[Rfam]
RNA: Small nucleolar RNA SNORD116
Nucleotides: 091
Base pairs, nucleotide, nucleotide: 002090003089004088005087026056027055028054029053030052032048033047034046
Number, partner (000 for none) and nucleotide at each position: 001000a002090g003089a004088u005087c006000a007000a008000u009000g010000a011000u012000g013000c014000g015000a016000c017000u018000c019000c020000c021000u022000c023000a024000u025000g026056c027055a028054u029053u030052c031000c032048u033047u034046g035000g036000a037000a038000a039000a040000g041000c042000u043000g044000a045000a046034c047033a048032a049000a050000a051000u052030g053029a054028g055027u056026g057000a058000g059000a060000a061000c062000u063000c064000u065000a066000c067000a068000u069000c070000a071000u072000u073000c074000u075000g076000a077000u078000a079000g080000a081000a082000u083000c084000u085000g086000a087005g088004g089003u090002c091000c